[Rfam]
RNA sequence: UGGGUUGGUCGGAAGAUCUAGGCCCACCGUAGGCGGGGAGAAUUCCC
Numbered sequence: 001u002g003g004g005u006u007g008g009u010c011g012g013a014a015g016a017u018c019u020a021g022g023c024c025c026a027c028c029g030u031a032g033g034c035g036g037g038g039a040g041a042a043u044u045c046c047c
Stems, first nucleotide, its partner, number of pairs: 001026006007018004
RNA: DUF3800-XI RNA